Shown here is a 163-nucleotide RNA sequence from Sinorhizobium saheli, a member of the family "Group II catalytic intron D1-D4-3". The pairing is the family consensus, mapped onto this sequence.
RNA sequence: GUCGCCGCGCGGAGGGGUCUGCUGUAAGCAAAGCGCCGGCCUGACGAACAGGACGCGCAUAGGAGGCGUCCGCUUCCGGGCGAGGGGGCCCAAAGACCCGAAGCCCGGUAUCACCGGAAGGUGCGGCCGAAGAUGCGCCGGGUAUGCCGGUAGAGAUAGUCGC
Numbered sequence: 001g002u003c004g005c006c007g008c009g010c011g012g013a014g015g016g017g018u019c020u021g022c023u024g025u026a027a028g029c030a031a032a033g034c035g036c037c038g039g040c041c042u043g044a045c046g047a048a049c050a051g052g053a054c055g056c057g058c059a060u061a062g063g064a065g066g067c068g069u070c071c072g073c074u075u076c077c078g079g080g081c082g083a084g085g086g087g088g089c090c091c092a093a094a095g096a097c098c099c100g101a102a103g104c105c106c107g108g109u110a111u112c113a114c115c116g117g118a119a120g121g122u123g124c125g126g127c128c129g130a131a132g133a134u135g136c137g138c139c140g141g142g143u144a145u146g147c148c149g150g151u152a153g154a155g156a157u158a159g160u161c162g163c
Base pairs, nucleotide, nucleotide: 002015003014005012006011021163022162024160025159029155034149035148037146038145039143040142041141042140043139055138056137057136058135059134060133067129068128070126071125072124073123075121076120078106079105080104081103084099085098086097